[Rfam]
A member of the RNA family "mir-1 microRNA precursor family" from Danionella cerebrum, 76 nucleotides long.
NCBI's taxonomy places the organism under Eukaryota, Craniata, Gnathostomata, Teleostei, Danionella.
Rfam links the family to the GO terms miRNA-mediated post-transcriptional gene silencing and RISC complex.
It scores 67 bits against the family's covariance model.
A reference for the family is Lee and Ambros (2001), "An extensive class of small RNAs in Caenorhabditis elegans", Science.
RNA sequence: AUUGAGACAACAUACUUCCUUAUAUCCCCAUAUACGGCAUCAAACUAUGGAAUGUAAGGAAGUGUGUGGCCUCAGA
Numbered sequence: 001a002u003u004g005a006g007a008c009a010a011c012a013u014a015c016u017u018c019c020u021u022a023u024a025u026c027c028c029c030a031u032a033u034a035c036g037g038c039a040u041c042a043a044a045c046u047a048u049g050g051a052a053u054g055u056a057a058g059g060a061a062g063u064g065u066g067u068g069g070c071c072u073c074a075g076a
Stems, first nucleotide, its partner, number of pairs: 008069001010067016028050005

The family has 137 seed sequences and 4,474 matches in Rfam 15.1. This family represents the microRNA (miRNA) mir-1 family. miRNAs are transcribed as ~70nt precursors (modelled here) and subsequently processed by the Dicer enzyme to give a ~22nt product.